Annotation
mir-2807 microRNA precursor family: an 83-nucleotide sequence from Bombyx mori. Pairs were carried over by alignment from the consensus structure, which was predicted with RNAalifold. The organism belongs to Bombyx, within Eukaryota. The family has 8 seed sequences and 5,120 matches in Rfam 15.1. The literature on the family includes a 2010 paper in BMC Genomics by Liu et al., "MicroRNAs of Bombyx mori identified by Solexa sequencing".
Nucleotides: 083
Stems, first nucleotide, its partner, number of pairs: 008077002011074001013072003017067001019065001021063008033051003038046002
Number, partner (000 for none) and nucleotide at each position: 001000u002000u003000a004000a005000c006000u007000c008077a009076a010000c011074u012000a013072u014071g015070u016000u017067g018000a019065a020000a021063u022062u023061g024060g025059g026058a027057c028056g029000u030000u031000u032000g033051c034050c035049u036000a037000c038046g039045u040000u041000u042000g043000c044000c045039g046038c047000u048000a049035g050034g051033g052000g053000c054000g055000c056028u057027g058026u059025u060024c061023c062022a063021a064000c065019u066000g067017c068000a069000u070015a071014c072013a073000a074011a075000u076009u077008u078000a079000a080000g081000u082000u083000a